[Rfam]
RNA: Bacterial RNase P class A
Organism: Pseudothermotoga thermarum
RNA sequence: GGAGAGGAACGGGUGGUCGCGGGUUUUCAAAACCCGAGGAAAGUCCGGACUCCUAGGGCAGGGUGCUGGGUAAUACCCAGGAGGAGCGAUCCUCGGAAAGGGCCACAGAAACUUCAAACCGCCUGGCGUAAUUUUUUUGCCAGGCAAGGGUGAAAAGGUGAGGUAAGAGCUCACCAGCGCUGGGGUGACCCAGCGGCUCGGUAACCCCCACCUGGAGCAAGGCCAAGCAGGGGUUGGGUGGCCCGCCCUAUCCCCCGGGUAGGCCGCUUGAGGAGGACCGAAAGGUUCUCCCUAGAUAGAUGACCACCCUCGACAGAAUCCGGCUUACAGUUCCUCUCCCCCA
Numbered sequence: 001g002g003a004g005a006g007g008a009a010c011g012g013g014u015g016g017u018c019g020c021g022g023g024u025u026u027u028c029a030a031a032a033c034c035c036g037a038g039g040a041a042a043g044u045c046c047g048g049a050c051u052c053c054u055a056g057g058g059c060a061g062g063g064u065g066c067u068g069g070g071u072a073a074u075a076c077c078c079a080g081g082a083g084g085a086g087c088g089a090u091c092c093u094c095g096g097a098a099a100g101g102g103c104c105a106c107a108g109a110a111a112c113u114u115c116a117a118a119c120c121g122c123c124u125g126g127c128g129u130a131a132u133u134u135u136u137u138u139g140c141c142a143g144g145c146a147a148g149g150g151u152g153a154a155a156a157g158g159u160g161a162g163g164u165a166a167g168a169g170c171u172c173a174c175c176a177g178c179g180c181u182g183g184g185g186u187g188a189c190c191c192a193g194c195g196g197c198u199c200g201g202u203a204a205c206c207c208c209c210a211c212c213u214g215g216a217g218c219a220a221g222g223c224c225a226a227g228c229a230g231g232g233g234u235u236g237g238g239u240g241g242c243c244c245g246c247c248c249u250a251u252c253c254c255c256c257g258g259g260u261a262g263g264c265c266g267c268u269u270g271a272g273g274a275g276g277a278c279c280g281a282a283a284g285g286u287u288c289u290c291c292c293u294a295g296a297u298a299g300a301u302g303a304c305c306a307c308c309c310u311c312g313a314c315a316g317a318a319u320c321c322g323g324c325u326u327a328c329a330g331u332u333c334c335u336c337u338c339c340c341c342c343a
Stems, first nucleotide, its partner, number of pairs: 001339010011328001012308007020036007041326003045323005050217004056244004061213005066080005081094005095208002100206002102202003119149002121145008157175006177197001178195007221265004231256003236248004272291008